[Rfam]
RNA sequence: CUCUUAUCCAGAGUGGCGGAGGGAUUCACACCCGACGAUGCCCGGCAACCUCUAUGUAUAUAGAAAGGUGCUAAUGUGAGCAGAAAAUUUCUGGACGAUAAGAC
Numbered sequence: 001c002u003c004u005u006a007u008c009c010a011g012a013g014u015g016g017c018g019g020a021g022g023g024a025u026u027c028a029c030a031c032c033c034g035a036c037g038a039u040g041c042c043c044g045g046c047a048a049c050c051u052c053u054a055u056g057u058a059u060a061u062a063g064a065a066a067g068g069u070g071c072u073a074a075u076g077u078g079a080g081c082a083g084a085a086a087a088u089u090u091c092u093g094g095a096c097g098a099u100a101a102g103a104c
Base pairs, nucleotide, nucleotide: 002103003102004101005100006099007098008097013043015042016041017040021033022032023031027080029078030077044072045071046070047069049068050067051064052063053062054061076096081093082092083091084090085089
Dot-bracket structure: .(((((((....(.(((...(((...[.[[)))......))))((((.((((((......))))..))))))...(]].](((((...)))))..)))))))).
Notes
Rfam assigns this 104-nucleotide sequence from Aliicoccus persicus to the family "SAM riboswitch aptamer (S box leader)". Pairs were carried over by alignment from the consensus structure, which is taken from published work.